Rfam assigns this 183-nucleotide sequence from Paraburkholderia sp. BL23I1N1 to the family "RT-15 RNA". The base pairs follow the family's consensus structure, which is taken from published work. It is annotated as a small RNA. The source organism's lineage runs through Bacteria, Betaproteobacteria, Burkholderiales, Burkholderiaceae and Paraburkholderia.
RNA sequence: AAUCGCCCGCUUCAUGGAGGUCAAGGCCGUCAUGACUGAGCGAUCUUUCAAUCUGGUCGUGCCGCUGGCUCACGAGGCCACCGCCAUGCGCACCACGGACACCGCCCGCCAGCGUGCGGCACGGUCCGGCGCAGUUUCCCCGCUGAGCGAUCGGCCGGGCGACGUAGAUAGCACGAUUAAUGC
Numbered sequence: 001a002a003u004c005g006c007c008c009g010c011u012u013c014a015u016g017g018a019g020g021u022c023a024a025g026g027c028c029g030u031c032a033u034g035a036c037u038g039a040g041c042g043a044u045c046u047u048u049c050a051a052u053c054u055g056g057u058c059g060u061g062c063c064g065c066u067g068g069c070u071c072a073c074g075a076g077g078c079c080a081c082c083g084c085c086a087u088g089c090g091c092a093c094c095a096c097g098g099a100c101a102c103c104g105c106c107c108g109c110c111a112g113c114g115u116g117c118g119g120c121a122c123g124g125u126c127c128g129g130c131g132c133a134g135u136u137u138c139c140c141c142g143c144u145g146a147g148c149g150a151u152c153g154g155c156c157g158g159g160c161g162a163c164g165u166a167g168a169u170a171g172c173a174c175g176a177u178u179a180a181u182g183c
Stems, first nucleotide, its partner, number of pairs: 004042003012035006019028003057176006063083002066080005087133005096128004102124002106119004135162002138159003142155005